Voltage-gated potassium-channel Kv1.4 IRES: a 262-nucleotide sequence. The family's consensus secondary structure was predicted with RNAalifold. Rfam's curators put it in the seed alignment. From the family's description: This family represents the Kv1.4 voltage-gated potassium-channel internal ribosome entry site (IRES). This region has been shown to mediate internal ribosome entry in cells derived from brain, heart, and skeletal muscle, tissues known to express Kv1.4 mRNA species.
[Rfam]
RNA sequence: UAGUCUUGAGAGUGCCAGGCUAUUUAUCUCGACCAGCCAAGCUCUGGAGAGCAAUGUUGAAUCCCUGAGAAGAGAGAGGCAUGGGGCGUGCUGAUUUAAAAACAGAAAAUGCAAAGUUGGAGCUGAAAAUAUCCUUAGUCUUCCAAGCAAUCUGCUUAAGGGUUCCAAACUUACCUUAAUUUGGUGAGAAAAGAAGCUGCCCUAUUUUUCUUUCUUCUUCUUCUACAACUGGAACCAGCCAUUUCCGAAAACCACCACCAUG
Numbered sequence: 001u002a003g004u005c006u007u008g009a010g011a012g013u014g015c016c017a018g019g020c021u022a023u024u025u026a027u028c029u030c031g032a033c034c035a036g037c038c039a040a041g042c043u044c045u046g047g048a049g050a051g052c053a054a055u056g057u058u059g060a061a062u063c064c065c066u067g068a069g070a071a072g073a074g075a076g077a078g079g080c081a082u083g084g085g086g087c088g089u090g091c092u093g094a095u096u097u098a099a100a101a102a103c104a105g106a107a108a109a110u111g112c113a114a115a116g117u118u119g120g121a122g123c124u125g126a127a128a129a130u131a132u133c134c135u136u137a138g139u140c141u142u143c144c145a146a147g148c149a150a151u152c153u154g155c156u157u158a159a160g161g162g163u164u165c166c167a168a169a170c171u172u173a174c175c176u177u178a179a180u181u182u183g184g185u186g187a188g189a190a191a192a193g194a195a196g197c198u199g200c201c202c203u204a205u206u207u208u209u210c211u212u213u214c215u216u217c218u219u220c221u222u223c224u225a226c227a228a229c230u231g232g233a234a235c236c237a238g239c240c241a242u243u244u245c246c247g248a249a250a251a252c253c254a255c256c257a258c259c260a261u262g
Stems, first nucleotide, its partner, number of pairs: 046246005067219012081205008090197003095192003103154004110149003117146005125140002170188006
Dot-bracket structure: .............................................(((((................((((((((((((..((((((((.(((..(((.....((((...(((....(((((...((............)).)))))))).))))...............((((((.......)))))).)))..)))))))))))..))))))))))))......................)))))................